[Rfam]
RNA sequence: UAAGGUCCAACGACAGGAUCAUGAUGAGGGAAUGUGUUACCCUCACGCUGCUGGGAUGUCGGCUUCAUGGCUUCCAGAGAGCGACCGUUGUA
Numbered sequence: 001u002a003a004g005g006u007c008c009a010a011c012g013a014c015a016g017g018a019u020c021a022u023g024a025u026g027a028g029g030g031a032a033u034g035u036g037u038u039a040c041c042c043u044c045a046c047g048c049u050g051c052u053g054g055g056a057u058g059u060c061g062g063c064u065u066c067a068u069g070g071c072u073u074c075c076a077g078a079g080a081g082c083g084a085c086c087g088u089u090g091u092a
Stems, first nucleotide, its partner, number of pairs: 004020005026044005046083004051077005058071003

The family of this 92-nucleotide RNA sequence from Methylobacterium sp. 4-46 is "Methylobacterium-1 RNA". The organism belongs to Methylobacterium, within Bacteria. It is one of the family's seed sequences.